[Rfam]
RNA sequence: CUCUCUCCCACAACCACGACCUGUGCCGGCCGUCCCAUCCACGUCUCCGGGCGUGUGCGUGGUCGAUGGCCGGCAGUUCGUCCGUCCCACGGAGCCUUCUCUCUCCCCAUGGAUUGCUUCGGACGACAGGUCGCAGAGGGAGGUGGCGCCCGCCUGGAAGCCUGAGUUCACCGUGAGGUUUGAACUCGGCGGACACGGAGCGCCUGGCCAGCUAAUUCCUGUUCCCUUCUGCUAGGCCGUCGGCCCAUGAUGCUUGGGACUAACCUAGUCGGCUACACGU
Numbered sequence: 001c002u003c004u005c006u007c008c009c010a011c012a013a014c015c016a017c018g019a020c021c022u023g024u025g026c027c028g029g030c031c032g033u034c035c036c037a038u039c040c041a042c043g044u045c046u047c048c049g050g051g052c053g054u055g056u057g058c059g060u061g062g063u064c065g066a067u068g069g070c071c072g073g074c075a076g077u078u079c080g081u082c083c084g085u086c087c088c089a090c091g092g093a094g095c096c097u098u099c100u101c102u103c104u105c106c107c108c109a110u111g112g113a114u115u116g117c118u119u120c121g122g123a124c125g126a127c128a129g130g131u132c133g134c135a136g137a138g139g140g141a142g143g144u145g146g147c148g149c150c151c152g153c154c155u156g157g158a159a160g161c162c163u164g165a166g167u168u169c170a171c172c173g174u175g176a177g178g179u180u181u182g183a184a185c186u187c188g189g190c191g192g193a194c195a196c197g198g199a200g201c202g203c204c205u206g207g208c209c210a211g212c213u214a215a216u217u218c219c220u221g222u223u224c225c226c227u228u229c230u231g232c233u234a235g236g237c238c239g240u241c242g243g244c245c246c247a248u249g250a251u252g253c254u255u256g257g258g259a260c261u262a263a264c265c266u267a268g269u270c271g272g273c274u275a276c277a278c279g280u
Base pairs, nucleotide, nucleotide: 017133018132019131020130021129022128023127024126025074026073027072028071029070031068032067033066034065035062036061037060038059039057040055041054042053043052044051045050083125084124085123086122087121090116091115092114095112096111145204146203147202151200153198154197160190161189162188164187165186166185167184168183169182171178172177207273208272209271211269212268213267214266223259224258225257226256231253232252235245236244237243238242

About this RNA
Rfam assigns this 280-nucleotide RNA from Plenodomus tracheiphilus to the family "A. fumigatus sRNA Afu_309". The source organism's lineage runs through Eukaryota, dothideomyceta, Pleosporineae, Plenodomus and Plenodomus tracheiphilus. A reference for the family is Jochl et al. (2008), "Small ncRNA transcriptome analysis from Aspergillus fumigatus suggests a novel mechanism for regulation of protein synthesis", Nucleic Acids Res. Pairs were carried over by alignment from the consensus structure, which was predicted with WAR. It scores 97 bits against the family's covariance model.